Notes:
The family of this 67-nucleotide RNA sequence from Eleutherodactylus coqui is "MAT2A 3'UTR stem loop A". The organism belongs to Eleutherodactylus, within Eukaryota. It scores 45 bits against the family's covariance model.

RNA sequence: GCUUUUCCUCCUUUGACCUGCUGGCGUUAUAUACAGAGAAGCCUGCAGACUCCUAUGGAGGAAAAGU
Numbered sequence: 001g002c003u004u005u006u007c008c009u010c011c012u013u014u015g016a017c018c019u020g021c022u023g024g025c026g027u028u029a030u031a032u033a034c035a036g037a038g039a040a041g042c043c044u045g046c047a048g049a050c051u052c053c054u055a056u057g058g059a060g061g062a063a064a065a066g067u
Stems, first nucleotide, its partner, number of pairs: 001067004008060004013055001015052002019047002023043003026034002